[Rfam]
RNA sequence: UCAUACGCGGGAGGCUCUGACACGCGGCCCUCACCCCGGCCGCCCGGACCGCGCCGAGCCACUGGCGAGACCGACCCCCCUGUAG
Numbered sequence: 001u002c003a004u005a006c007g008c009g010g011g012a013g014g015c016u017c018u019g020a021c022a023c024g025c026g027g028c029c030c031u032c033a034c035c036c037c038g039g040c041c042g043c044c045c046g047g048a049c050c051g052c053g054c055c056g057a058g059c060c061a062c063u064g065g066c067g068a069g070a071c072c073g074a075c076c077c078c079c080c081u082g083u084a085g
Base pairs, nucleotide, nucleotide: 001085003083004082005081007079009077010076011075013060014059015058023053024052025051026050027049029047038072039071041067042066043065044064
Dot-bracket structure: (.(((.(.(((.(((.......(((((.(........[[.[[[[..).)))))....)))...]]]]...]]..))).).))).)